[Rfam]
RNA sequence: UGACUGCGAUGAAGCGAAAGGUUGCCGACACACCCGGCUGCAUUGCCAUGGCUAGUGUGGGGGAAAUUUUCGUGGAGAAUGUCUAGUAAUUAGGCGCGAAGGAGGGAAUAUAAUGGCAA
Numbered sequence: 001u002g003a004c005u006g007c008g009a010u011g012a013a014g015c016g017a018a019a020g021g022u023u024g025c026c027g028a029c030a031c032a033c034c035c036g037g038c039u040g041c042a043u044u045g046c047c048a049u050g051g052c053u054a055g056u057g058u059g060g061g062g063g064a065a066a067u068u069u070u071c072g073u074g075g076a077g078a079a080u081g082u083c084u085a086g087u088a089a090u091u092a093g094g095c096g097c098g099a100a101g102g103a104g105g106g107a108a109u110a111u112a113a114u115g116g117c118a119a
Base pairs, nucleotide, nucleotide: 014073015072016071018070019069020068021067025061026060028058029057030056031055080118081117082116083115086114087113089111
S10-Clostridia ribosomal protein leader: a 119-nucleotide RNA from Planococcaceae bacterium Storch 2/2-2. The match comes from Rfam's covariance-model search (36 bits). It is annotated as a cis-regulatory leader. For this family Rfam cites "Discovery of 20 novel ribosomal leader candidates in bacteria and archaea" (Eckert and Weinberg, BMC Microbiol, 2020).